[Rfam]
RNA: MIR7502 microRNA precursor family
Organism: Gossypium stocksii
RNA sequence: UGUUAAAAAUUUCAUCUAUUUAUACUGUUAAAAACUAACAUAGUUGACAGAAUAACCAAAUAAUGGCACAUGGCAUGCCAUGUGUACCUAAUGUUAACAUACAUGAACUAGUUUUUAAUAGUAGAUAUGGAUGAAAGUUUUAACU
Numbered sequence: 001u002g003u004u005a006a007a008a009a010u011u012u013c014a015u016c017u018a019u020u021u022a023u024a025c026u027g028u029u030a031a032a033a034a035c036u037a038a039c040a041u042a043g044u045u046g047a048c049a050g051a052a053u054a055a056c057c058a059a060a061u062a063a064u065g066g067c068a069c070a071u072g073g074c075a076u077g078c079c080a081u082g083u084g085u086a087c088c089u090a091a092u093g094u095u096a097a098c099a100u101a102c103a104u105g106a107a108c109u110a111g112u113u114u115u116u117a118a119u120a121g122u123a124g125a126u127a128u129g130g131a132u133g134a135a136a137g138u139u140u141u142a143a144c145u
Stems, first nucleotide, its partner, number of pairs: 002144007010136007018128002021125001023123004028118006